Shown here is a 78-nucleotide sequence from Cynoglossus semilaevis, a member of the family "mir-92 microRNA precursor family".
About the family: This family represents the microRNA precursor mir-92.
The source organism's lineage runs through Eukaryota, Clupeocephala, Eurypterygia, Pleuronectiformes and Cynoglossus.
The family is grouped with related families in Rfam's "mir-92 microRNA precursor clan".

RNA sequence: UCUCCUCUGCAGGUUGGGAGAGGUGGCAAUGCUCUCUGAUGCUGUGGUAUUGCACUUGUCCCGGCCUGUUGAGGUCAU
Numbered sequence: 001u002c003u004c005c006u007c008u009g010c011a012g013g014u015u016g017g018g019a020g021a022g023g024u025g026g027c028a029a030u031g032c033u034c035u036c037u038g039a040u041g042c043u044g045u046g047g048u049a050u051u052g053c054a055c056u057u058g059u060c061c062c063g064g065c066c067u068g069u070u071g072a073g074g075u076c077a078u
Stems, first nucleotide, its partner, number of pairs: 004074003009069006016062004022056003026053008